Overview:
Rfam assigns this 362-nucleotide RNA from Fusarium flagelliforme to the family "Nuclear RNase P". The base pairs follow the family's consensus structure, which is taken from published work. A search with the family's covariance model found it, with a score of 47 bits. Taxonomically the source falls in Fusarium incarnatum-equiseti species complex (Eukaryota, Dikarya, Sordariomycetes, Hypocreales). Its Rfam clan is "RNaseP clan". The family has 116 seed sequences and 3,848 matches in Rfam 15.1. The family's RNA type in Rfam is ribozyme.
[Rfam]
RNA sequence: GUCCUCUUUAACGUCGCGCUUCCAAGCUACAAACAGACAUCUUGCCUUUAGGUGAAAUGAUAUUACGCAUGUGAGAAAUUCGGAGAAGCUCUCCACGCCACCUGAUUUUUUUUUUUUCCCUUUCGGGGCAGGUGGCACAGCACUCCCUCGCUUUUCGAAGUGAAAGGGCGUGUCUACCCGUGAGGGUCCAGCGCCAAUCGGCGCUCGCAUUGGUACAGAAAAGCAGGGUCUCGCGGGUCCCAGGCUCGCUGCUCAGUCAGAGAUUCCUAUGGAAACGCCGUGCGGAGAUUGUGGUUAUCACUGAAGUGCGAUGCGCGACGUGGCUCCGGCCAUACUUCGAUUCCGAUUAUUCUCUAGAGGAC
Numbered sequence: 001g002u003c004c005u006c007u008u009u010a011a012c013g014u015c016g017c018g019c020u021u022c023c024a025a026g027c028u029a030c031a032a033a034c035a036g037a038c039a040u041c042u043u044g045c046c047u048u049u050a051g052g053u054g055a056a057a058u059g060a061u062a063u064u065a066c067g068c069a070u071g072u073g074a075g076a077a078a079u080u081c082g083g084a085g086a087a088g089c090u091c092u093c094c095a096c097g098c099c100a101c102c103u104g105a106u107u108u109u110u111u112u113u114u115u116u117u118c119c120c121u122u123u124c125g126g127g128g129c130a131g132g133u134g135g136c137a138c139a140g141c142a143c144u145c146c147c148u149c150g151c152u153u154u155u156c157g158a159a160g161u162g163a164a165a166g167g168g169c170g171u172g173u174c175u176a177c178c179c180g181u182g183a184g185g186g187u188c189c190a191g192c193g194c195c196a197a198u199c200g201g202c203g204c205u206c207g208c209a210u211u212g213g214u215a216c217a218g219a220a221a222a223g224c225a226g227g228g229u230c231u232c233g234c235g236g237g238u239c240c241c242a243g244g245c246u247c248g249c250u251g252c253u254c255a256g257u258c259a260g261a262g263a264u265u266c267c268u269a270u271g272g273a274a275a276c277g278c279c280g281u282g283c284g285g286a287g288a289u290u291g292u293g294g295u296u297a298u299c300a301c302u303g304a305a306g307u308g309c310g311a312u313g314c315g316c317g318a319c320g321u322g323g324c325u326c327c328g329g330c331c332a333u334a335c336u337u338c339g340a341u342u343c344c345g346a347u348u349a350u351u352c353u354c355u356a357g358a359g360g361a362c
Base pairs, nucleotide, nucleotide: 001362002361003360004359010353013319014318015317016316017315018314019313023071024070026068038054039053040052041051042050081345082344083343084342085341091287092286093285094284176187177186178185179184190205191204192203193202194201207283208282209281210280212278226268227267228266320333321332322331323330324329